[Rfam]
RNA sequence: CUGCAUGUGGACAUGUCUGCCCUCUUUUCUUGGGGAGUAGGAGUGUAUCCAUAACAUGCUACAGUGAUCAAGGAGUUCUCAGGGCUGCCAGCCUUACAGGAAAGGUUGAGUAGUAGUAUAUUUCUCCUACACUG
Numbered sequence: 001c002u003g004c005a006u007g008u009g010g011a012c013a014u015g016u017c018u019g020c021c022c023u024c025u026u027u028u029c030u031u032g033g034g035g036a037g038u039a040g041g042a043g044u045g046u047a048u049c050c051a052u053a054a055c056a057u058g059c060u061a062c063a064g065u066g067a068u069c070a071a072g073g074a075g076u077u078c079u080c081a082g083g084g085c086u087g088c089c090a091g092c093c094u095u096a097c098a099g100g101a102a103a104g105g106u107u108g109a110g111u112a113g114u115a116g117u118a119u120a121u122u123u124c125u126c127c128u129a130c131a132c133u134g
Stems, first nucleotide, its partner, number of pairs: 003059006016041005022035002072127004084114002088110001089108007
A member of the RNA family "Small nucleolar RNA U109" from Mus spicilegus, 134 nucleotides long. It scores 129 bits against the family's covariance model. By type it is an H/ACA-box small nucleolar RNA. The organism belongs to Mus, within Eukaryota.